The record is an 89-nucleotide RNA sequence from Candidatus Symbiopectobacterium sp. Dall1.0, which matches "sRNA-Xcc1" in Rfam.
RNA sequence: GGUCGGGUAGCGAGUAGUAAUACAACACCCCAUUGGGGGAAAACUGCUGGCCGUCUCAGAUCGGUGUUCAAGUACCCGACCGCCCCGUG
Numbered sequence: 001g002g003u004c005g006g007g008u009a010g011c012g013a014g015u016a017g018u019a020a021u022a023c024a025a026c027a028c029c030c031c032a033u034u035g036g037g038g039g040a041a042a043a044c045u046g047c048u049g050g051c052c053g054u055c056u057c058a059g060a061u062c063g064g065u066g067u068u069c070a071a072g073u074a075c076c077c078g079a080c081c082g083c084c085c086c087g088u089g
Stems, first nucleotide, its partner, number of pairs: 001081009013048004018043001028038003050065004
On this family, see Chen et al., RNA Biol 2011: "sRNA-Xcc1, an integron-encoded transposon- and plasmid-transferred trans-acting sRNA, is under the positive control of the key virulence regulators HrpG and HrpX of Xanthomonas campestris pathovar campestris". It scores 72 bits against the family's covariance model. The family's RNA type in Rfam is small RNA. The organism belongs to Symbiopectobacterium, within Bacteria.